Mammalian CPEB3 ribozyme: a 77-nucleotide RNA sequence from Alligator mississippiensis.
The source organism's lineage runs through Eukaryota, Chordata, Gnathostomata, Alligatorinae and Alligator.
RNA sequence: UAAGACAAGUCUGAGGCCACGGCAGAAGCGCUCAUGGCACGGCCCAGUCAGAUUCCAACAAAUCUGUGAAUCCUGGU
Dot-bracket structure: ............(.((((..[.[[[.[(.(.......).))))))...((((((......))))))....].]]].]